[Rfam]
RNA sequence: UCGCAGACAGUUACCCCUUUCUAGUCUGGCUCGUGGGACUCUAGAGGGAGUCAGUCUGCAACAGUGACUGGUGAGUUCUUCUGUCCAGUGUCAGCGCGUUGAUGGUGGCUUUAGACGUGCCAGAUAGCG
Numbered sequence: 001u002c003g004c005a006g007a008c009a010g011u012u013a014c015c016c017c018u019u020u021c022u023a024g025u026c027u028g029g030c031u032c033g034u035g036g037g038a039c040u041c042u043a044g045a046g047g048g049a050g051u052c053a054g055u056c057u058g059c060a061a062c063a064g065u066g067a068c069u070g071g072u073g074a075g076u077u078c079u080u081c082u083g084u085c086c087a088g089u090g091u092c093a094g095c096g097c098g099u100u101g102a103u104g105g106u107g108g109c110u111u112u113a114g115a116c117g118u119g120c121c122a123g124a125u126a127g128c129g
Stems, first nucleotide, its partner, number of pairs: 003059006020045005025038003069122005075116001077115003083109003089104006
RNA: Small nucleolar RNA SNORA56
Organism: Camelus dromedarius